[Rfam]
RNA sequence: UUCUUAUUAAGAGAAGUGGAGGGACCUGGCCCGACGAAACUUCAGCAACCUCCAUCCGAAAGGUGCUGCUUCCAGCAAGAGUAAUCUUGAAAGAUAAGAG
Dot-bracket structure: ((((((((....(((((...(((..[[[[)))......)))))((((.((((.....))..))))))...(]]]](((((....)))))..)))))))))
Numbered sequence: 001u002u003c004u005u006a007u008u009a010a011g012a013g014a015a016g017u018g019g020a021g022g023g024a025c026c027u028g029g030c031c032c033g034a035c036g037a038a039a040c041u042u043c044a045g046c047a048a049c050c051u052c053c054a055u056c057c058g059a060a061a062g063g064u065g066c067u068g069c070u071u072c073c074a075g076c077a078a079g080a081g082u083a084a085u086c087u088u089g090a091a092a093g094a095u096a097a098g099a100g
Stems, first nucleotide, its partner, number of pairs: 001100008013043005021032003026075004044067004049063002051059002071092001076089005
Description: This 100-nucleotide RNA from Guptibacillus hwajinpoensis belongs to the Rfam family "SAM riboswitch aptamer (S box leader)". From the family's description: The SAM riboswitch is found upstream of a number of genes which code for proteins involved in methionine or cysteine biosynthesis in Gram-positive bacteria. The source organism's lineage runs through Bacteria, Bacillota, Bacilli, Guptibacillaceae and Guptibacillus.